A member of the RNA family "FMN riboswitch aptamer (RFN element)" from Haliea sp., 155 nucleotides long. Lineage of the source: Bacteria > Gammaproteobacteria > Cellvibrionales > Halieaceae > Haliea. Pairs were carried over by alignment from the consensus structure, which is taken from published work.

RNA sequence: CAGCGUUCUCAGGGCGGGGCGAAAUUCCCCACCGGCGGUGUUUGCGUGUCAACGCAUCAGCCCGCGAGCGCCCGGCUUCUUCCUGGAUGCCGGGGUCAGCAGAUUCGGUUCAACUCCGAAGCCGACGGUCACAGUCCGGAUGAAAGAGAGCGCGA
Numbered sequence: 001c002a003g004c005g006u007u008c009u010c011a012g013g014g015c016g017g018g019g020c021g022a023a024a025u026u027c028c029c030c031a032c033c034g035g036c037g038g039u040g041u042u043u044g045c046g047u048g049u050c051a052a053c054g055c056a057u058c059a060g061c062c063c064g065c066g067a068g069c070g071c072c073c074g075g076c077u078u079c080u081u082c083c084u085g086g087a088u089g090c091c092g093g094g095g096u097c098a099g100c101a102g103a104u105u106c107g108g109u110u111c112a113a114c115u116c117c118g119a120a121g122c123c124g125a126c127g128g129u130c131a132c133a134g135u136c137c138g139g140a141u142g143a144a145a146g147a148g149a150g151c152g153c154g155a
Stems, first nucleotide, its partner, number of pairs: 003153008017029003031135002033124002035065004060122002068100002104120005126138003